The record is a 66-nucleotide sequence, which matches "tRNA" in Rfam. Rfam links the family to the GO term triplet codon-amino acid adaptor activity.
[Rfam]
RNA sequence: GACUCUGUAGUGAAGUUCAUAAUGAGUUGCAAACUCGUUGAUGUACACUAAAGUGUGCCGGGGUCU
Number, nucleotide and partner (000 for none) at each position: 001g065002a064003c063004u062005c061006u060007g059008u000009a000010g020011u019012g018013a017014a000015g000016u000017u013018c012019a011020u010021a000022a038023u037024g036025a035026g034027u000028u000029g000030c000031a000032a000033a000034c026035u025036c024037g023038u022039u000040g000041a000042u000043g058044u057045a056046c055047a054048c000049u000050a000051a000052a000053g000054u047055g046056u045057g044058c043059c007060g006061g005062g004063g003064u002065c001066u000